[Rfam]
RNA sequence: UGACCUCGGAUCAGACGUGAAUACCCGCUGAACUUAAGCAUAUCACUAAGCGGAGGAAAAGAAACUAACCAGGAUUCCCCUAGUAACGGCGAGUGAACAGGGAUCAGCCCAGCACCGAAGCCUGUGGCCGUUUGGCUGCUAGGCAAUGUGGUGUUUAGGUCGUCUCGUGGCAUUACUGCUCCAUCCUAAGUCCAGCACUGAGUAUGGCAUCUGGAGUGGCCCAUUGAGGGUGAAAGGCCCGCGGGGGUGGAGAUCAAAUCGGCCAGUAAUGUCUUGAGUAGACCUUGGAGUCGGGUUGUUUGUGAAUGCAGCCCAAAGUGGGUGGUAAACUCCAUCCAAGGCUAAAUACUAACACGAGUCCGAUAGCGAACAAGUACCGUGAGGGAAAGUUGAAAAGUACUUUGAAGAGAGAGUAAACAGUGCGUGAAACCGCUCAGAGGUAAA
Numbered sequence: 001u002g003a004c005c006u007c008g009g010a011u012c013a014g015a016c017g018u019g020a021a022u023a024c025c026c027g028c029u030g031a032a033c034u035u036a037a038g039c040a041u042a043u044c045a046c047u048a049a050g051c052g053g054a055g056g057a058a059a060a061g062a063a064a065c066u067a068a069c070c071a072g073g074a075u076u077c078c079c080c081u082a083g084u085a086a087c088g089g090c091g092a093g094u095g096a097a098c099a100g101g102g103a104u105c106a107g108c109c110c111a112g113c114a115c116c117g118a119a120g121c122c123u124g125u126g127g128c129c130g131u132u133u134g135g136c137u138g139c140u141a142g143g144c145a146a147u148g149u150g151g152u153g154u155u156u157a158g159g160u161c162g163u164c165u166c167g168u169g170g171c172a173u174u175a176c177u178g179c180u181c182c183a184u185c186c187u188a189a190g191u192c193c194a195g196c197a198c199u200g201a202g203u204a205u206g207g208c209a210u211c212u213g214g215a216g217u218g219g220c221c222c223a224u225u226g227a228g229g230g231u232g233a234a235a236g237g238c239c240c241g242c243g244g245g246g247g248u249g250g251a252g253a254u255c256a257a258a259u260c261g262g263c264c265a266g267u268a269a270u271g272u273c274u275u276g277a278g279u280a281g282a283c284c285u286u287g288g289a290g291u292c293g294g295g296u297u298g299u300u301u302g303u304g305a306a307u308g309c310a311g312c313c314c315a316a317a318g319u320g321g322g323u324g325g326u327a328a329a330c331u332c333c334a335u336c337c338a339a340g341g342c343u344a345a346a347u348a349c350u351a352a353c354a355c356g357a358g359u360c361c362g363a364u365a366g367c368g369a370a371c372a373a374g375u376a377c378c379g380u381g382a383g384g385g386a387a388a389g390u391u392g393a394a395a396a397g398u399a400c401u402u403u404g405a406a407g408a409g410a411g412a413g414u415a416a417a418c419a420g421u422g423c424g425u426g427a428a429a430c431c432g433c434u435c436a437g438a439g440g441u442a443a444a
Stems, first nucleotide, its partner, number of pairs: 024055001025053005035042002065072002076103004086094002106343004113153005119147001120144004124139005158284004164278003172270007180251007190208001192207003222226001229239002293314007320337005377384002400411004
RNA: Eukaryotic large subunit ribosomal RNA, nucleotides 1 to 444
Organism: Oryzias sinensis